[Rfam]
RNA: Small nucleolar RNA SNORA14
Organism: Coptotermes formosanus
RNA sequence: UAGCACUCUAGAAAACCCCAUACGCAUGGUAAUAUUAUGUAUGGUAAAUGUGAGUGCAAAAUUAUAUUGUGUGAAUACCAAAGUGGUUGUGUUUGUCAUCACAAUCACUAUUUCACUUCACACACAGAC
Numbered sequence: 001u002a003g004c005a006c007u008c009u010a011g012a013a014a015a016c017c018c019c020a021u022a023c024g025c026a027u028g029g030u031a032a033u034a035u036u037a038u039g040u041a042u043g044g045u046a047a048a049u050g051u052g053a054g055u056g057c058a059a060a061a062u063u064a065u066a067u068u069g070u071g072u073g074a075a076u077a078c079c080a081a082a083g084u085g086g087u088u089g090u091g092u093u094u095g096u097c098a099u100c101a102c103a104a105u106c107a108c109u110a111u112u113u114c115a116c117u118u119c120a121c122a123c124a125c126a127g128a129c
Stems, first nucleotide, its partner, number of pairs: 003057004008050001010049001018044006062128002068122004082109009093098001